[Rfam]
RNA sequence: ACCGGCACACUACAACGCCACACACGCAUCGACACCGGUUUCGGGGUGCCCUGCCCGCUUUUCAAGCGCCAGGGUCGAGGUCGGGGAUGCGUGGAGGUUCAAC
Numbered sequence: 001a002c003c004g005g006c007a008c009a010c011u012a013c014a015a016c017g018c019c020a021c022a023c024a025c026g027c028a029u030c031g032a033c034a035c036c037g038g039u040u041u042c043g044g045g046g047u048g049c050c051c052u053g054c055c056c057g058c059u060u061u062u063c064a065a066g067c068g069c070c071a072g073g074g075u076c077g078a079g080g081u082c083g084g085g086g087a088u089g090c091g092u093g094g095a096g097g098u099u100c101a102a103c
Stems, first nucleotide, its partner, number of pairs: 023093008035084009048075005
t44 RNA: a 103-nucleotide RNA from Oleiagrimonas soli. Lineage of the source: Bacteria > Pseudomonadati > Pseudomonadota > Rhodanobacteraceae > Oleiagrimonas. It is annotated as a small RNA. A search with the family's covariance model found it, with a score of 71 bits. About the family: This family consists of a number of bacterial RNA genes of between 135 and 170 bases in length. The literature on the family includes a 2002 paper in Nucleic Acids Res by Tjaden et al., "Transcriptome analysis of Escherichia coli using high-density oligonucleotide probe arrays".